[Rfam]
RNA sequence: GGGGCCGACUGGUUUUGACAGCGGGUCUAAUUGUAAUGUAAGCAUGUCGAGCGCUGGGAAACAGCUCGUUAAUCUCAUUUUUCACACUUUUUAAACGGCGAGAAUAACUACGCCCUAGCUGCAUAAUCCGAAUCAUAGUAGGAUAAUGCCUCGGUCCGCAAGGCGGACAAGCAGGAAGUCUCUCGAUUGCCUUGGUUUGCGGCGAUUGAUAUAGAGACUUCGUAAAAGUAAACCUAGCCGCAAUAGUGCUUUGAUGUUGCGGUGAAACUCAAGUAAAGAUAAGGGGUGCGUUGGUAGUUUUCGACCGGCAAUCUCACGAAAACCUAAAUGAAAACUACACAUGUAGAAAGCGUUAUAAUUGCUUGUUUGGACGAGGGUUCGAAUCCCUCCGGCUCCACGA
Numbered sequence: 001g002g003g004g005c006c007g008a009c010u011g012g013u014u015u016u017g018a019c020a021g022c023g024g025g026u027c028u029a030a031u032u033g034u035a036a037u038g039u040a041a042g043c044a045u046g047u048c049g050a051g052c053g054c055u056g057g058g059a060a061a062c063a064g065c066u067c068g069u070u071a072a073u074c075u076c077a078u079u080u081u082u083c084a085c086a087c088u089u090u091u092u093a094a095a096c097g098g099c100g101a102g103a104a105u106a107a108c109u110a111c112g113c114c115c116u117a118g119c120u121g122c123a124u125a126a127u128c129c130g131a132a133u134c135a136u137a138g139u140a141g142g143a144u145a146a147u148g149c150c151u152c153g154g155u156c157c158g159c160a161a162g163g164c165g166g167a168c169a170a171g172c173a174g175g176a177a178g179u180c181u182c183u184c185g186a187u188u189g190c191c192u193u194g195g196u197u198u199g200c201g202g203c204g205a206u207u208g209a210u211a212u213a214g215a216g217a218c219u220u221c222g223u224a225a226a227a228g229u230a231a232a233c234c235u236a237g238c239c240g241c242a243a244u245a246g247u248g249c250u251u252u253g254a255u256g257u258u259g260c261g262g263u264g265a266a267a268c269u270c271a272a273g274u275a276a277a278g279a280u281a282a283g284g285g286g287u288g289c290g291u292u293g294g295u296a297g298u299u300u301u302c303g304a305c306c307g308g309c310a311a312u313c314u315c316a317c318g319a320a321a322a323c324c325u326a327a328a329u330g331a332a333a334a335c336u337a338c339a340c341a342u343g344u345a346g347a348a349a350g351c352g353u354u355a356u357a358a359u360u361g362c363u364u365g366u367u368u369g370g371a372c373g374a375g376g377g378u379u380c381g382a383a384u385c386c387c388u389c390c391g392g393c394u395c396c397a398c399g400a
Base pairs, nucleotide, nucleotide: 001396002395003394004393005392006391007390019369020368021367024364025363027361031358032357033356034355035354036353037352038351039350043343044342045341046340047339048068049067050066051065052064055084056083057082058081059080060079061078123144124143127140177219178218179217180216181215182214184208185207186206187205188204189203190202191201195233196232197231198230199229200228237263238262239261240260241259242258243257249278250277251276252275283315284314285313286312287311288309289308293306294305295304297335298334299333300332301331302330303329373389374388375387376386377385
The record is a 400-nucleotide RNA from Ulvibacter litoralis, which matches "transfer-messenger RNA" in Rfam. It is annotated as a non-coding RNA gene. NCBI's taxonomy places the organism under Bacteria, Pseudomonadati, Flavobacteriia, Flavobacteriales, Ulvibacter. Rfam's curators write: Bacterial tmRNA, also known as 10Sa RNA or SsrA, is named for its dual tRNA and mRNA-like properties. Its role is to liberate the mRNA from a stalled ribosome. To accomplish this part of the tmRNA is used as a reading frame that ends in a translation stop signal. The broken mRNA is replaced in the ribosome by the tmRNA and translation of the tmRNA leads to addition of a proteolysis tag to the incomplete protein enabling recognition by a protease.